Overview: The family of this 146-nucleotide RNA sequence from Secundilactobacillus collinoides is "FMN riboswitch aptamer (RFN element)". The match comes from Rfam's covariance-model search (103 bits).

[Rfam]
RNA sequence: AGAUUUCUUCGAGGCAGGGUGAAAUUCCCGACCGACGGUGACAACCGAGUGUACCUCUCAGGUUGAAGUCCGUAACCCGCGUUUUAGCGGUGGACCCAGUGCAAGUCUGGGACCGACAGUAAUAGUCUGGAUGGGAGAAGAAAAAU
Numbered sequence: 001a002g003a004u005u006u007c008u009u010c011g012a013g014g015c016a017g018g019g020u021g022a023a024a025u026u027c028c029c030g031a032c033c034g035a036c037g038g039u040g041a042c043a044a045c046c047g048a049g050u051g052u053a054c055c056u057c058u059c060a061g062g063u064u065g066a067a068g069u070c071c072g073u074a075a076c077c078c079g080c081g082u083u084u085u086a087g088c089g090g091u092g093g094a095c096c097c098a099g100u101g102c103a104a105g106u107c108u109g110g111g112a113c114c115g116a117c118a119g120u121a122a123u124a125g126u127c128u129g130g131a132u133g134g135g136a137g138a139a140g141a142a143a144a145a146u
Base pairs, nucleotide, nucleotide: 004143005142006141007140008139009138010137017029018028019027031126032125033115034114035073036072037071038070068113069112077090078089095111096110097109098108099107117129118128119127